[Rfam]
Notes: Lysine riboswitch aptamer: a 172-nucleotide RNA from Blautia hydrogenotrophica.

RNA sequence: AUCUUAGAUAGAGGUGCGGGUUUUAUCAGUACUCUAAAGCAAUGGCCGGAUCGCCGUUUUAGAGGAAAGGAAAAACCGCCGAAGAGUUUUGACGCCGGUCCGGGUGUCGCAGCUCUGGGACGCCAUAGAAAAUAUGGCGUACUGUCACAGUUUGUGGAGCGCUAUCAGGUUU
Numbered sequence: 001a002u003c004u005u006a007g008a009u010a011g012a013g014g015u016g017c018g019g020g021u022u023u024u025a026u027c028a029g030u031a032c033u034c035u036a037a038a039g040c041a042a043u044g045g046c047c048g049g050a051u052c053g054c055c056g057u058u059u060u061a062g063a064g065g066a067a068a069g070g071a072a073a074a075a076c077c078g079c080c081g082a083a084g085a086g087u088u089u090u091g092a093c094g095c096c097g098g099u100c101c102g103g104g105u106g107u108c109g110c111a112g113c114u115c116u117g118g119g120a121c122g123c124c125a126u127a128g129a130a131a132a133u134a135u136g137g138c139g140u141a142c143u144g145u146c147a148c149a150g151u152u153u154g155u156g157g158a159g160c161g162c163u164a165u166c167a168g169g170u171u172u
Base pairs, nucleotide, nucleotide: 007166008165009164010163011162016079017078018077019076021074022073023072024071032064033063034062035061036060037059038058039057083116084115085114086113087112088111090109091108092107093106094105117143118142120140121139122138123137124136125135126134127133145157146156147155148154149153
A search with the family's covariance model found it, with a score of 108 bits.